[Rfam]
RNA sequence: GCACCAGGCCGGGCCCCUCUGGCAGUUCCCAUGGAGCUGCGAUGUCGGACUGGAUGA
Numbered sequence: 001g002c003a004c005c006a007g008g009c010c011g012g013g014c015c016c017c018u019c020u021g022g023c024a025g026u027u028c029c030c031a032u033g034g035a036g037c038u039g040c041g042a043u044g045u046c047g048g049a050c051u052g053g054a055u056g057a
Stems, first nucleotide, its partner, number of pairs: 006051002009048004022040008
terC RNA: a 57-nucleotide RNA from Propylenella binzhouense. Rfam classes the family as a cis-regulatory element. The family's consensus secondary structure is taken from published work. The match comes from Rfam's covariance-model search (57 bits). Taxonomically the source falls in Propylenella (Bacteria, Pseudomonadati, Pseudomonadota, Alphaproteobacteria).